Annotation: Shown here is a 152-nucleotide sequence from Vagococcus humatus, a member of the family "Listeria sRNA rli38". The match comes from Rfam's covariance-model search (70 bits). The base pairs follow the family's consensus structure, which was predicted with RNAalifold. It is annotated as a small RNA. The organism belongs to Vagococcus, within Bacteria.

[Rfam]
RNA sequence: AUUGAGUGGGAGUAAUUCAUAAAUAUAAAUUGAAUUGUUUAUCUUGAUUUAACACCUUUUUAGUCGUUGUAAAAAGGUAAAUAUCAAUCAAAAAAUAAAAUAGUUUUCUGCGAAAAACCCCGCCAAGAGAAAAGCUUAGCGGGGUUUUUUUA
Numbered sequence: 001a002u003u004g005a006g007u008g009g010g011a012g013u014a015a016u017u018c019a020u021a022a023a024u025a026u027a028a029a030u031u032g033a034a035u036u037g038u039u040u041a042u043c044u045u046g047a048u049u050u051a052a053c054a055c056c057u058u059u060u061u062a063g064u065c066g067u068u069g070u071a072a073a074a075a076g077g078u079a080a081a082u083a084u085c086a087a088u089c090a091a092a093a094a095a096u097a098a099a100a101u102a103g104u105u106u107u108c109u110g111c112g113a114a115a116a117a118c119c120c121c122g123c124c125a126a127g128a129g130a131a132a133a134g135c136u137u138a139g140c141g142g143g144g145u146u147u148u149u150u151u152a
Stems, first nucleotide, its partner, number of pairs: 008108005046085003050081001054078002057075005086096001088094001115148003118144006125137003